[Rfam]
RNA: Small nucleolar RNA Z107/R87
Organism: Oryza sativa
RNA sequence: GAUGGCAGUGACGACUUGGUAAUAUUCAAGCUCAACAGACCAAAUCACAGGUCUUCCUCUCUGGAUCCACUCCUCUGGGAUUGAUUUGUAUGCCGAUUUUCCCGCUGAACCGAGCCAUC
Numbered sequence: 001g002a003u004g005g006c007a008g009u010g011a012c013g014a015c016u017u018g019g020u021a022a023u024a025u026u027c028a029a030g031c032u033c034a035a036c037a038g039a040c041c042a043a044a045u046c047a048c049a050g051g052u053c054u055u056c057c058u059c060u061c062u063g064g065a066u067c068c069a070c071u072c073c074u075c076u077g078g079g080a081u082u083g084a085u086u087u088g089u090a091u092g093c094c095g096a097u098u099u100u101c102c103c104g105c106u107g108a109a110c111c112g113a114g115c116c117a118u119c
Base pairs, nucleotide, nucleotide: 001119002118003117004116005115006114